[Rfam]
RNA: c-di-GMP-I riboswitch aptamer
RNA sequence: AUAUGAUAAAGGCAAAACUACAGAAAUGUAGUGACGCAAAGCUAUAGGGACUUAUCCAUUAAGGAAUGUCAGCCAGUUACCAAA
Numbered sequence: 001a002u003a004u005g006a007u008a009a010a011g012g013c014a015a016a017a018c019u020a021c022a023g024a025a026a027u028g029u030a031g032u033g034a035c036g037c038a039a040a041g042c043u044a045u046a047g048g049g050a051c052u053u054a055u056c057c058a059u060u061a062a063g064g065a066a067u068g069u070c071a072g073c074c075a076g077u078u079a080c081c082a083a084a
Base pairs, nucleotide, nucleotide: 012037013036017032018031019030020029021028022027040078041077042076043075047074048073049070050069051068056064057063